A member of the RNA family "Fluoride riboswitch aptamer (crcB RNA motif)" from Flavobacterium supellecticarium, 63 nucleotides long. Gene Ontology terms of the family: response to fluoride and positive regulation of gene expression. The source organism's lineage runs through Bacteria, Bacteroidota, Flavobacteriia, Flavobacteriales and Flavobacterium. Pairs were carried over by alignment from the consensus structure, which is taken from published work.

[Rfam]
RNA sequence: CGUAAAUAUGGCAAUGAUGUCUGCCUUGAACCGCUUUAAAAAGCUGAUGACGUCUGUAACACG
Numbered sequence: 001c002g003u004a005a006a007u008a009u010g011g012c013a014a015u016g017a018u019g020u021c022u023g024c025c026u027u028g029a030a031c032c033g034c035u036u037u038a039a040a041a042a043g044c045u046g047a048u049g050a051c052g053u054c055u056g057u058a059a060c061a062c063g
Stems, first nucleotide, its partner, number of pairs: 010025004016054006033044004